[Rfam]
RNA: TPP riboswitch aptamer (THI element)
Organism: Geothermobacter ehrlichii
RNA sequence: CAGCACCGCUGGGGGAGUGAAGACUGAGAGUCCUGCGACAGGCAGGGCGACCCUUCGAACCUGAUCCGGGUCAUGCCGGCGUAGGGAAGCGGCCAGAGCGAUUU
Numbered sequence: 001c002a003g004c005a006c007c008g009c010u011g012g013g014g015g016a017g018u019g020a021a022g023a024c025u026g027a028g029a030g031u032c033c034u035g036c037g038a039c040a041g042g043c044a045g046g047g048c049g050a051c052c053c054u055u056c057g058a059a060c061c062u063g064a065u066c067c068g069g070g071u072c073a074u075g076c077c078g079g080c081g082u083a084g085g086g087a088a089g090c091g092g093c094c095a096g097a098g099c100g101a102u103u104u
Stems, first nucleotide, its partner, number of pairs: 006092005011054004017024002031047005060085004066079004